[Rfam]
RNA sequence: CGCGGGGGACGACCCUCGCCUCAGUUGAAGAAUACCGGGACGGCCCGG
Numbered sequence: 001c002g003c004g005g006g007g008g009a010c011g012a013c014c015c016u017c018g019c020c021u022c023a024g025u026u027g028a029a030g031a032a033u034a035c036c037g038g039g040a041c042g043g044c045c046c047g048g
Stems, first nucleotide, its partner, number of pairs: 002019007035048005

Source information: The record is a 48-nucleotide RNA from Aquamicrobium lusatiense, which matches "Guanidine-II riboswitch aptamer (mini-ykkC)" in Rfam. The source organism's lineage runs through Bacteria, Pseudomonadati, Pseudomonadota, Hyphomicrobiales and Aquamicrobium. Rfam links the family to the GO term regulation of gene expression. Simpler in structure and has fewer highly conserved nucleotide positions than the ykkC-yxkD leader. Despite this each of its two stem-loop structures directly bind free guanidine. The family's consensus secondary structure is taken from published work. A search with the family's covariance model found it, with a score of 37 bits.